[Rfam]
RNA sequence: UGGCGGGGCUUGGCCUUGACGGGGGGUGUGAGUGUCAUUAGACUCAUGCACCCCUAAAUUUGGCAGGGCAUCCGCUCUGCCAUUUUGCUUUCCUUAGUGGGCAAUAGCGUCGAAAGACAACAGUGGAGCUUAUAGA
Numbered sequence: 001u002g003g004c005g006g007g008g009c010u011u012g013g014c015c016u017u018g019a020c021g022g023g024g025g026g027u028g029u030g031a032g033u034g035u036c037a038u039u040a041g042a043c044u045c046a047u048g049c050a051c052c053c054c055u056a057a058a059u060u061u062g063g064c065a066g067g068g069c070a071u072c073c074g075c076u077c078u079g080c081c082a083u084u085u086u087g088c089u090u091u092c093c094u095u096a097g098u099g100g101g102c103a104a105u106a107g108c109g110u111c112g113a114a115a116g117a118c119a120a121c122a123g124u125g126g127a128g129c130u131u132a133u134a135g136a
Stems, first nucleotide, its partner, number of pairs: 004018006022053003026049006035040001061082009103133001106130003109118003

Pseudomonas rpsL leader: a 136-nucleotide RNA sequence from Pseudomonas taeanensis. Lineage of the source: Bacteria > Pseudomonadati > Pseudomonadota > Pseudomonadaceae > Pseudomonas taeanensis. The family's RNA type in Rfam is cis-regulatory leader. Gene Ontology term of the family: regulation of gene expression.